[Rfam]
RNA sequence: GAGACGCCGUUGGACCUCCGUGGAUGUUUGCUUUUGCGGUGAAGAGGUGAUAACGGGCGCUUCACCGGGUUAACAUCUACAGAGGUCCGGGCGUCUU
Numbered sequence: 001g002a003g004a005c006g007c008c009g010u011u012g013g014a015c016c017u018c019c020g021u022g023g024a025u026g027u028u029u030g031c032u033u034u035u036g037c038g039g040u041g042a043a044g045a046g047g048u049g050a051u052a053a054c055g056g057g058c059g060c061u062u063c064a065c066c067g068g069g070u071u072a073a074c075a076u077c078u079a080c081a082g083a084g085g086u087c088c089g090g091g092c093g094u095c096u097u
Stems, first nucleotide, its partner, number of pairs: 003095006012088007020080009030070003037067008
A member of the RNA family "mir-42 microRNA precursor family" from Caenorhabditis japonica, 97 nucleotides long.
The base pairs follow the family's consensus structure, which was predicted with RNAalifold.
Its family is annotated with RISC complex and miRNA-mediated post-transcriptional gene silencing in the Gene Ontology.
The source organism's lineage runs through Eukaryota, Opisthokonta, Ecdysozoa, Rhabditidae and Caenorhabditis.
It scores 73 bits against the family's covariance model.